Antisense RNA which regulates isiA expression: a 178-nucleotide RNA sequence from Acaryochloris marina.
For this family Rfam cites "An internal antisense RNA regulates expression of the photosynthesis gene isiA" (Duhring et al., Proc Natl Acad Sci U S A, 2006).

RNA sequence: GAUAGCCAAAAAUAACAGAUGGACUGAGGGUGGGAUCUGUGACCAACCUGACUUCUUGCAAAUCAGGGUCAUAGAGUCCUCCCCAAUACAUGGCCCAACCCACAAAUAGGAGGGUAUACAAGCCCAAAAUGAGGAGAUGAUGGCCUAAAAUUCGACCGAGUUUAGUGGUAUUGUCCCA
Numbered sequence: 001g002a003u004a005g006c007c008a009a010a011a012a013u014a015a016c017a018g019a020u021g022g023a024c025u026g027a028g029g030g031u032g033g034g035a036u037c038u039g040u041g042a043c044c045a046a047c048c049u050g051a052c053u054u055c056u057u058g059c060a061a062a063u064c065a066g067g068g069u070c071a072u073a074g075a076g077u078c079c080u081c082c083c084c085a086a087u088a089c090a091u092g093g094c095c096c097a098a099c100c101c102a103c104a105a106a107u108a109g110g111a112g113g114g115u116a117u118a119c120a121a122g123c124c125c126a127a128a129a130u131g132a133g134g135a136g137a138u139g140a141u142g143g144c145c146u147a148a149a150a151u152u153c154g155a156c157c158g159a160g161u162u163u164a165g166u167g168g169u170a171u172u173g174u175c176c177c178a
Base pairs, nucleotide, nucleotide: 136175137174138173139172140171141170145168146167147166
The family has 308 seed sequences and 3,397 matches in Rfam 15.1.
It scores 96 bits against the family's covariance model.
The family's consensus secondary structure was predicted with PFOLD.